DUF3800-I RNA: a 128-nucleotide RNA sequence. Rfam describes the family as follows. Actinobacteria, Firmicutes, Fusobacteria, Proteobacteria (1 example), Tenericutes (2 examples). The sequence is in the family's curated seed alignment. It is annotated as a small RNA.

[Rfam]
RNA sequence: UUUAACUGCAGGUAAGGAUAACCUAUACUGCGUACUCGUGAAAACCGAAUUAACGUUUAAACGACUUGUAAAGUCGUCGGACAUGAGGAAAAGCUGUCACAUCAAGUGAUGGCUUUUUUAUUUUGAGA
Numbered sequence: 001u002u003u004a005a006c007u008g009c010a011g012g013u014a015a016g017g018a019u020a021a022c023c024u025a026u027a028c029u030g031c032g033u034a035c036u037c038g039u040g041a042a043a044a045c046c047g048a049a050u051u052a053a054c055g056u057u058u059a060a061a062c063g064a065c066u067u068g069u070a071a072a073g074u075c076g077u078c079g080g081a082c083a084u085g086a087g088g089a090a091a092a093g094c095u096g097u098c099a100c101a102u103c104a105a106g107u108g109a110u111g112g113c114u115u116u117u118u119u120a121u122u123u124u125g126a127g128a
Stems, first nucleotide, its partner, number of pairs: 007032005012026003035087006045080003048057003061077006088118013